Shown here is a 120-nucleotide RNA from Musa balbisiana, a member of the family "Plastid-psbA-1 3UTR RNA". Pairs were carried over by alignment from the consensus structure, which was predicted with LocARNA. A search with the family's covariance model found it, with a score of 84 bits. Plastid psbA-1 is a non-coding RNA (ncRNA) present in plastids. It was identified in inverted repeat sequences in the 3 prime untranslate region (3UTR) of photosystem II quinone-binding protein (psbA). Its Rfam clan is "Plastid-psbA 3UTR RNA clan".
RNA sequence: UCGAAGUUUCAUCUACAAAUGGAUAAGAUUUUUUGUCUAGUGUAUACGAAUCGUUGCAAACAAAAGAUAGCAAUAACCCAUGUCUUGCUUUAGCAAAGGGACAUGGGGUAUUGAUACUUU
Numbered sequence: 001u002c003g004a005a006g007u008u009u010c011a012u013c014u015a016c017a018a019a020u021g022g023a024u025a026a027g028a029u030u031u032u033u034u035g036u037c038u039a040g041u042g043u044a045u046a047c048g049a050a051u052c053g054u055u056g057c058a059a060a061c062a063a064a065a066g067a068u069a070g071c072a073a074u075a076a077c078c079c080a081u082g083u084c085u086u087g088c089u090u091u092a093g094c095a096a097a098g099g100g101a102c103a104u105g106g107g108g109u110a111u112u113g114a115u116a117c118u119u120u
Base pairs, nucleotide, nucleotide: 008023009022010021011020012019063120064119065118066117068116069115071113072112073111074110075109078106079105080104082102083101084100085096086095